A member of the RNA family "mir-982 microRNA precursor family" from Drosophila simulans, 89 nucleotides long.
RNA sequence: CAAAAUCAUGCUAGAUCAAGAACAAAUAUCAUGUAAAUUGAUUUUUUAAAUCAACUACACGAUAUUCGUUCUUGAGCUUAAUGGUUCUA
Numbered sequence: 001c002a003a004a005a006u007c008a009u010g011c012u013a014g015a016u017c018a019a020g021a022a023c024a025a026a027u028a029u030c031a032u033g034u035a036a037a038u039u040g041a042u043u044u045u046u047u048a049a050a051u052c053a054a055c056u057a058c059a060c061g062a063u064a065u066u067c068g069u070u071c072u073u074g075a076g077c078u079u080a081a082u083g084g085u086u087c088u089a
Stems, first nucleotide, its partner, number of pairs: 002088001004086006013078002016075003020071004025066006032059004038054005